[Rfam]
Shown here is an 82-nucleotide RNA sequence from Sakesphorus luctuosus, a member of the family "Small nucleolar RNA SNORD111". Rfam links the family to the GO terms RNA processing and nucleolus. A search with the family's covariance model found it, with a score of 50 bits. Rfam 15.1 lists 894 matches to the family in 541 species. It is annotated as a C/D-box small nucleolar RNA.
RNA sequence: UGGCCUGAAAUGAUGUUCUGAGUUCAUGUCUCUUCUCUGAGAUUUCUCUUGAAGACAGCCAGAUGCAUUUCUGAUCAGGCUU
Dot-bracket structure: .((((........................................................................)))).
Numbered sequence: 001u002g003g004c005c006u007g008a009a010a011u012g013a014u015g016u017u018c019u020g021a022g023u024u025c026a027u028g029u030c031u032c033u034u035c036u037c038u039g040a041g042a043u044u045u046c047u048c049u050u051g052a053a054g055a056c057a058g059c060c061a062g063a064u065g066c067a068u069u070u071c072u073g074a075u076c077a078g079g080c081u082u
Stems, first nucleotide, its partner, number of pairs: 002081004